[Rfam]
RNA sequence: CUUCCCCUCCCUUACUCCAGCCACCCCAGUGGAGUGGCCUGGCAUUAACAGGGGAUACAGAAACACGGCUCGCUCACGUCUCCAUGCCGGGACCGUUAUCCCACGUGAGGUUGUGAGAGACCGGACACU
Number, nucleotide and partner (000 for none) at each position: 001c000002u000003u055004c054005c053006c052007c051008u050009c000010c000011c000012u000013u000014a000015c000016u000017c042018c041019a040020g039021c000022c037023a035024c034025c000026c032027c031028a000029g000030u000031g027032g026033a000034g024035u023036g000037g022038c000039c020040u019041g018042g017043c000044a000045u000046u000047a000048a000049c000050a008051g007052g006053g005054g004055a003056u000057a000058c000059a000060g000061a000062a000063a000064c000065a000066c123067g122068g121069c000070u000071c000072g000073c119074u118075c000076a000077c000078g000079u000080c000081u000082c000083c107084a106085u105086g104087c000088c000089g102090g101091g100092a099093c000094c000095g000096u000097u000098a000099u092100c091101c090102c089103a000104c086105g085106u084107g083108a000109g000110g000111u000112u000113g000114u000115g000116a000117g000118a074119g073120a000121c068122c067123g066124g000125a000126c000127a000128c000129u000
RNA: Small nucleolar RNA SNORA49
Organism: Esox lucius